This 97-nucleotide RNA belongs to the Rfam family "PhotoRC-II RNA". Pairs were carried over by alignment from the consensus structure, which is taken from published work. Rfam classes the family as a cis-regulatory element. The sequence is in the family's curated seed alignment.

[Rfam]
RNA sequence: UAACGUUUCUUAAGACUCCCGUUAACCGAGACCUAUGGGAGGAUAAAUUACGUCUCUCAUACCCACACUGGAGGGUGGUGUGGGAAUAAUGUAUCAU
Numbered sequence: 001u002a003a004c005g006u007u008u009c010u011u012a013a014g015a016c017u018c019c020c021g022u023u024a025a026c027c028g029a030g031a032c033c034u035a036u037g038g039g040a041g042g043a044u045a046a047a048u049u050a051c052g053u054c055u056c057u058c059a060u061a062c063c064c065a066c067a068c069u070g071g072a073g074g075g076u077g078g079u080g081u082g083g084g085a086a087u088a089a090u091g092u093a094u095c096a097u
Base pairs, nucleotide, nucleotide: 016041017040018039019038020037021036022035028056029055030054031053032052062084063083064082065081066080067079068078